The family of this 100-nucleotide RNA from Hordeum vulgare is "Small nucleolar RNA Z119". Taxonomically the source falls in Hordeum vulgare (Eukaryota, Viridiplantae, Tracheophyta, Poales). A search with the family's covariance model found it, with a score of 77 bits. Rfam classes the family as a C/D-box small nucleolar RNA. The literature on the family includes a 2003 paper in Nucleic Acids Res by Chen et al., "The high diversity of snoRNAs in plants: identification and comparative study of 120 snoRNA genes from Oryza sativa". Rfam links the family to the GO terms RNA processing and nucleolus.
[Rfam]
RNA sequence: UUUUGUAAAGGAGAUGAUGAACAUCAGAGGCUGUUUCUGAGGAUGGGCCUAGAGCUCUCCCUAUGUUGCACAAUAACUGAUUUGCCUAUCUGAUCCAAAG
Numbered sequence: 001u002u003u004u005g006u007a008a009a010g011g012a013g014a015u016g017a018u019g020a021a022c023a024u025c026a027g028a029g030g031c032u033g034u035u036u037c038u039g040a041g042g043a044u045g046g047g048c049c050u051a052g053a054g055c056u057c058u059c060c061c062u063a064u065g066u067u068g069c070a071c072a073a074u075a076a077c078u079g080a081u082u083u084g085c086c087u088a089u090c091u092g093a094u095c096c097a098a099a100g
Stems, first nucleotide, its partner, number of pairs: 003098003007094001045057004068085003072081001